[Rfam]
RNA sequence: CGUUGCGUUGUAUGCAACAUGCCAAUGCCUCGGCGAUCUGAGAGAGGCGCCUUCGGGUGAUCGCCAUGCCAAUGCCACCGUGACCUGAGAGGUGGCGCCUUCGGGCGGUAACUUCGUUUACCCUUUGAAAACGAAGAUCGCAUACAGUUUGAAUCUGGC
Numbered sequence: 001c002g003u004u005g006c007g008u009u010g011u012a013u014g015c016a017a018c019a020u021g022c023c024a025a026u027g028c029c030u031c032g033g034c035g036a037u038c039u040g041a042g043a044g045a046g047g048c049g050c051c052u053u054c055g056g057g058u059g060a061u062c063g064c065c066a067u068g069c070c071a072a073u074g075c076c077a078c079c080g081u082g083a084c085c086u087g088a089g090a091g092g093u094g095g096c097g098c099c100u101u102c103g104g105g106c107g108g109u110a111a112c113u114u115c116g117u118u119u120a121c122c123c124u125u126u127g128a129a130a131a132c133g134a135a136g137a138u139c140g141c142a143u144a145c146a147g148u149u150u151g152a153a154u155c156u157g158g159c
Stems, first nucleotide, its partner, number of pairs: 002018006027048005033064006049058003074096005083109003097106003113135005120156001124152002137148002
The family of this 159-nucleotide RNA from Salmonella enterica is "STAXI RNA". The family's RNA type in Rfam is small RNA. The base pairs follow the family's consensus structure, which is taken from published work. Taxonomically the source falls in Salmonella enterica subsp. enterica serovar Paratyphi B (Bacteria, Enterobacterales, Enterobacteriaceae, Salmonella enterica). The family has 43 seed sequences and 130 matches in Rfam 15.1.